[Rfam]
RNA sequence: AAUUUUCAGUGAUUGAAUGUGCGUUGUAUCACUUCAAACCUGAUGAUUGAAUGCGUAUGAUGGAGUGAGAUGAACCCUUGCCGCUGGCGGUGAGGGUUUUCUUUUGGA
Numbered sequence: 001a002a003u004u005u006u007c008a009g010u011g012a013u014u015g016a017a018u019g020u021g022c023g024u025u026g027u028a029u030c031a032c033u034u035c036a037a038a039c040c041u042g043a044u045g046a047u048u049g050a051a052u053g054c055g056u057a058u059g060a061u062g063g064a065g066u067g068a069g070a071u072g073a074a075c076c077c078u079u080g081c082c083g084c085u086g087g088c089g090g091u092g093a094g095g096g097u098u099u100u101c102u103u104u105u106g107g108a
Base pairs, nucleotide, nucleotide: 015035016034017033019032020031021030072099073098074097075096076095077094078093079092080091081090082089083088
Shown here is a 108-nucleotide RNA sequence from Enterobacteriaceae bacterium strain FGI 57, a member of the family "Enterobacteria rnk leader". Pairs were carried over by alignment from the consensus structure, which is taken from published work. It is annotated as a cis-regulatory leader. NCBI's taxonomy places the organism under Bacteria, Pseudomonadati, Pseudomonadota, Gammaproteobacteria, Enterobacteriaceae. Its family is annotated with regulation of gene expression in the Gene Ontology.